The record is an 84-nucleotide RNA sequence from Dioscorea zingiberensis, which matches "Small nucleolar RNA SNORD25" in Rfam.
RNA sequence: AUCAACUAUGAUGAUCCUACAGACCUGUAAUGAUGUUGCGGUUAUGAUCGCAUUAUCUAAGAACAUCUAAGGGACUGAGUUGAU
Numbered sequence: 001a002u003c004a005a006c007u008a009u010g011a012u013g014a015u016c017c018u019a020c021a022g023a024c025c026u027g028u029a030a031u032g033a034u035g036u037u038g039c040g041g042u043u044a045u046g047a048u049c050g051c052a053u054u055a056u057c058u059a060a061g062a063a064c065a066u067c068u069a070a071g072g073g074a075c076u077g078a079g080u081u082g083a084u
Stems, first nucleotide, its partner, number of pairs: 002083005
For this family Rfam cites "Identification of 10 novel snoRNA gene clusters from Arabidopsis thaliana" (Qu et al., Nucleic Acids Res, 2001). Gene Ontology terms of the family: nucleolus and RNA processing.